Rfam assigns this 391-nucleotide RNA from Pseudactinotalea sp. HY158 to the family "Bacterial RNase P class A". A search with the family's covariance model found it, with a score of 291 bits. Rfam links the family to the GO terms tRNA processing, dimeric ribonuclease P complex and ribonuclease P activity.

RNA sequence: UGAGUCGACCAGGCGGUCGCGUCGCCCCGGCCUCGUGCCGGGGCGCCGAGGAACGUCCGGGCUCCACAGGGCAGAGCGGUGGGUAACACCCACCCGGGGUGACCCGCGGGACAGUGCCACAGAAAGGAAACAGCCACCGGUGCGUGCACCGGCGGUCAUGGUGAAAGGGUGGUGUAAGAGACCACCAGCGCACCGGGUGACCGGUGCGGCUAGGUAAACCCCGCUCGGAGCAAGAUCAGACAGGAAGCGCUCGUAGGCUGCCCGCCGAGCUUCCGGGUGGAUCGCUCGAGGUGCGCGGCAACGCGCAUCCUAGAUGGAUGACCGUCACCGCGGCCCACUCCGCGAGGAGCGGGCCGAGGGACAGAACCCGGCGUAUCGGUCGACUCAUCCA
Number, nucleotide and partner (000 for none) at each position: 001u387002g386003a385004g384005u383006c382007g381008a380009c379010c378011a376012g326013g325014c324015g323016g322017u321018c320019g000020c048021g047022u000023c045024g044025c043026c042027c041028c040029g039030g038031c000032c000033u000034c000035g000036u000037g000038c030039c029040g028041g027042g026043g025044c024045g023046c000047c021048g020049a000050g000051g000052a000053a374054c373055g372056u000057c371058c370059g369060g368061g367062c230063u229064c228065c227066a000067c000068a000069g263070g262071g261072c260073a000074g226075a225076g224077c223078g222079g093080u092081g091082g090083g089084u000085a000086a000087c000088a000089c083090c082091c081092a080093c079094c108095c106096g105097g104098g103099g000100u000101g000102a000103c098104c097105c096106g095107c000108g094109g221110g220111a000112c000113a000114g219115u218116g215117c214118c213119a000120c000121a000122g000123a000124a000125a000126g000127g000128a000129a000130a000131c160132a159133g156134c155135c154136a000137c151138c000139g149140g000141u000142g000143c000144g000145u000146g000147c000148a000149c139150c000151g137152g000153c000154g135155g134156u133157c000158a000159u132160g131161g000162u000163g000164a000165a000166a000167g000168g186169g185170u184171g183172g182173u181174g000175u000176a000177a000178g000179a000180g000181a173182c172183c171184a170185c169186c168187a000188g210189c208190g207191c206192a205193c204194c203195g202196g201197g000198u000199g000200a000201c196202c195203g194204g193205u192206g191207c190208g189209g000210c188211u000212a000213g118214g117215u116216a000217a000218a115219c114220c110221c109222c078223g077224c076225u075226c074227g065228g064229a063230g062231c000232a000233a000234g283235a282236u281237c280238a000239g000240a000241c000242a000243g274244g273245a272246a271247g270248c269249g000250c000251u000252c000253g000254u268255a000256g266257g265258c264259u000260g072261c071262c070263c069264g258265c257266c256267g000268a254269g248270c247271u246272u245273c244274c243275g000276g000277g000278u000279g000280g237281a236282u235283c234284g000285c000286u000287c000288g000289a000290g309291g308292u307293g306294c305295g304296c303297g302298g000299c000300a000301a000302c297303g296304c295305g294306c293307a292308u291309c290310c000311u000312a000313g000314a000315u000316g000317g000318a000319u000320g018321a017322c016323c015324g014325u013326c012327a000328c000329c000330g000331c000332g000333g000334c000335c000336c000337a000338c000339u000340c000341c000342g000343c000344g000345a000346g000347g000348a000349g000350c000351g000352g000353g000354c000355c000356g000357a000358g000359g000360g000361a000362c000363a000364g000365a000366a000367c061368c060369c059370g058371g057372c055373g054374u053375a000376u011377c000378g010379g009380u008381c007382g006383a005384c004385u003386c002387a001388u000389c000390c000391a000